This 68-nucleotide RNA from Rhodococcus opacus belongs to the Rfam family "ASdes TB sRNA".
Lineage of the source: Bacteria > Bacillati > Actinomycetota > Mycobacteriales > Rhodococcus opacus.
The sequence is in the family's curated seed alignment.
The family's RNA type in Rfam is small RNA.

RNA sequence: AGUGCGACGGGAUCGACGGCACGCGUCACCAUCAGGUAGUUGCGGAGCACGAUGGAGUGCCGGUUCUC
Numbered sequence: 001a002g003u004g005c006g007a008c009g010g011g012a013u014c015g016a017c018g019g020c021a022c023g024c025g026u027c028a029c030c031a032u033c034a035g036g037u038a039g040u041u042g043c044g045g046a047g048c049a050c051g052a053u054g055g056a057g058u059g060c061c062g063g064u065u066c067u068c
Base pairs, nucleotide, nucleotide: 005062006061008059009058011030013028015027016026017025018024037054038053040052041051042050044048